[Rfam]
The family of this 275-nucleotide sequence from Sciurus carolinensis is "Mason-Pfizer monkey virus packaging signal". Rfam classes the family as a cis-regulatory element. NCBI's taxonomy places the organism under Eukaryota, Vertebrata, Euteleostomi, Sarcopterygii, Sciurus. This family represents a group of sequences that are related to the Mason-Pfizer monkey virus (MPMV) packaging signal. On this family, see Mustafa et al., Virus Res 2004: "Mutational analysis of the predicted secondary RNA structure of the Mason-Pfizer monkey virus packaging signal".
RNA sequence: UGGCGCCCAACGUGGGGCCUGUACACCAGGGAAAUCGCGAGGAAGAGGCGUUUGAUAGUUCUGGGGAACACAGCAGAAGUCAGUUCAAAAAAGAUGGCCGCGUGAACCUGCCGGGUCGCUCUUAAAGGUACAGUAACACCUAAUUAUGGGACAAGAAUUAAGUAAGCAUAAAAUUCUUGUUAAGCAAUUAAAAGAAGCCUUAAAGACACGGGGAGUAAGGGUUAAAAGUAAUGAGCUUUUUAAGUUUUUUGACCUUAUCAAGGACACCUGCCCGU
Numbered sequence: 001u002g003g004c005g006c007c008c009a010a011c012g013u014g015g016g017g018c019c020u021g022u023a024c025a026c027c028a029g030g031g032a033a034a035u036c037g038c039g040a041g042g043a044a045g046a047g048g049c050g051u052u053u054g055a056u057a058g059u060u061c062u063g064g065g066g067a068a069c070a071c072a073g074c075a076g077a078a079g080u081c082a083g084u085u086c087a088a089a090a091a092a093g094a095u096g097g098c099c100g101c102g103u104g105a106a107c108c109u110g111c112c113g114g115g116u117c118g119c120u121c122u123u124a125a126a127g128g129u130a131c132a133g134u135a136a137c138a139c140c141u142a143a144u145u146a147u148g149g150g151a152c153a154a155g156a157a158u159u160a161a162g163u164a165a166g167c168a169u170a171a172a173a174u175u176c177u178u179g180u181u182a183a184g185c186a187a188u189u190a191a192a193a194g195a196a197g198c199c200u201u202a203a204a205g206a207c208a209c210g211g212g213g214a215g216u217a218a219g220g221g222u223u224a225a226a227a228g229u230a231a232u233g234a235g236c237u238u239u240u241u242a243a244g245u246u247u248u249u250u251g252a253c254c255u256u257a258u259c260a261a262g263g264a265c266a267c268c269u270g271c272c273c274g275u
Stems, first nucleotide, its partner, number of pairs: 006031003012026003036047001085128002089123001094120001095118001099115001101113002134154001139150004159202003162198002209251008219237002222234003260275001262273002265270001
Dot-bracket structure: .....(((...(((.........)))..)))....(..........).....................................((..(....((...(.((.........)).)..).)..)...)).....(....((((....))))...)....(((((.................................)).)))......((((((((..((.(((.......))).))......))))))))........(.((.(....).)).)